[Rfam]
RNA sequence: GCUUUACUGUAGCAGCACGUAAAUAUUGGAGUUAAGACUUAGCUGAAGUCUCCAGUAUUGAUCGUGCUGCUGAAGCAAAGC
Numbered sequence: 001g002c003u004u005u006a007c008u009g010u011a012g013c014a015g016c017a018c019g020u021a022a023a024u025a026u027u028g029g030a031g032u033u034a035a036g037a038c039u040u041a042g043c044u045g046a047a048g049u050c051u052c053c054a055g056u057a058u059u060g061a062u063c064g065u066g067c068u069g070c071u072g073a074a075g076c077a078a079a080g081c
Stems, first nucleotide, its partner, number of pairs: 001081003005077001007075001010074001011071008020061001022059008
Dot-bracket structure: (((.(.(..(((((((((.(.((((((((......................)))))))).)..))))))))..)).).)))